[Rfam]
RNA: Group II catalytic intron D1-D4-1
Organism: Allochromatium vinosum
RNA sequence: CGCGUCGGGCGGCAACGCUCGGCGUGACGGGACAGAAGUCAGCAGAGGCCAUAGUAGCCGAGCGAGCGUGGAGCGCUCGCCCGACGAAGGGC
Numbered sequence: 001c002g003c004g005u006c007g008g009g010c011g012g013c014a015a016c017g018c019u020c021g022g023c024g025u026g027a028c029g030g031g032a033c034a035g036a037a038g039u040c041a042g043c044a045g046a047g048g049c050c051a052u053a054g055u056a057g058c059c060g061a062g063c064g065a066g067c068g069u070g071g072a073g074c075g076c077u078c079g080c081c082c083g084a085c086g087a088a089g090g091g092c
Stems, first nucleotide, its partner, number of pairs: 001026002004023008039046002048092003057085001059083001066080003